The record is a 188-nucleotide RNA from Carya illinoinensis, which matches "MIR159 microRNA precursor family" in Rfam.

[Rfam]
RNA sequence: AAAGGAGAAAGGGAGCUCCCUUCAGUCCAAGUACAGGAAGCUUAAGAUUUAAUUUGUCUCCCGCGUCAUUCACUCAUUUACUGGGUAUGAUCGCCUUCUAACACAGUAUUUGGAUGAAUGAGUCGGCAGCUAAUUAAACCCUACAGCCGCCCAUGAGUGGACUGAAGAAAGCUCUCUUAAACCUUAAU
Numbered sequence: 001a002a003a004g005g006a007g008a009a010a011g012g013g014a015g016c017u018c019c020c021u022u023c024a025g026u027c028c029a030a031g032u033a034c035a036g037g038a039a040g041c042u043u044a045a046g047a048u049u050u051a052a053u054u055u056g057u058c059u060c061c062c063g064c065g066u067c068a069u070u071c072a073c074u075c076a077u078u079u080a081c082u083g084g085g086u087a088u089g090a091u092c093g094c095c096u097u098c099u100a101a102c103a104c105a106g107u108a109u110u111u112g113g114a115u116g117a118a119u120g121a122g123u124c125g126g127c128a129g130c131u132a133a134u135u136a137a138a139c140c141c142u143a144c145a146g147c148c149g150c151c152c153a154u155g156a157g158u159g160g161a162c163u164g165a166a167g168a169a170a171g172c173u174c175u176c177u178u179a180a181a182c183c184u185u186a187a188u
Stems, first nucleotide, its partner, number of pairs: 013174005020167001023164007036151001058129002061126003067120004075112001
Dot-bracket structure: ............(((((..(..(((((((......(.....................((.(((...((((....(....................................)....))))...))).)).....................)......)))))))..)..)))))..............
The organism belongs to Carya, within Eukaryota. The family's consensus secondary structure was predicted with WAR.